[Rfam]
RNA sequence: AGGCGUAUAGCUCAGUUGGUUAGAGCGCUACGUUGACAUCGUAGAGGUCUCCAGUUCGAGUCUGGAUAUGCCUA
Numbered sequence: 001a002g003g004c005g006u007a008u009a010g011c012u013c014a015g016u017u018g019g020u021u022a023g024a025g026c027g028c029u030a031c032g033u034u035g036a037c038a039u040c041g042u043a044g045a046g047g048u049c050u051c052c053a054g055u056u057c058g059a060g061u062c063u064g065g066a067u068a069u070g071c072c073u074a
Base pairs, nucleotide, nucleotide: 001073002072003071004070005069006068007067010026011025012024013023028044029043030042031041032040050066051065052064053063054062